[Rfam]
RNA sequence: CCCCCCGUCUUUGGGGAGUAGCCGCCCUGCCGUCCGGCCCCGUGCCGCACGCCAGGGAGUGCGCGUCAACAUGCUUGGGGCCGCCCGUCGAGGGUCGUUCCAUGGUGCGCACAGUCCUCCGACCUGGCAAGACCAUGGACCAUGCCGCCGCGGGACUGGCCGGGCUGCGCAUGGUCUGUCGUCCGCCUUCCGGCCAGGGAGCU
Numbered sequence: 001c002c003c004c005c006c007g008u009c010u011u012u013g014g015g016g017a018g019u020a021g022c023c024g025c026c027c028u029g030c031c032g033u034c035c036g037g038c039c040c041c042g043u044g045c046c047g048c049a050c051g052c053c054a055g056g057g058a059g060u061g062c063g064c065g066u067c068a069a070c071a072u073g074c075u076u077g078g079g080g081c082c083g084c085c086c087g088u089c090g091a092g093g094g095u096c097g098u099u100c101c102a103u104g105g106u107g108c109g110c111a112c113a114g115u116c117c118u119c120c121g122a123c124c125u126g127g128c129a130a131g132a133c134c135a136u137g138g139a140c141c142a143u144g145c146c147g148c149c150g151c152g153g154g155a156c157u158g159g160c161c162g163g164g165c166u167g168c169g170c171a172u173g174g175u176c177u178g179u180c181g182u183c184c185g186c187c188u189u190c191c192g193g194c195c196a197g198g199g200a201g202c203u
Base pairs, nucleotide, nucleotide: 025057026056027055028054029053059112060111061110062109063108064107065106066105067104068103076102077101078100079099080098081097113203114202115201117199118198119197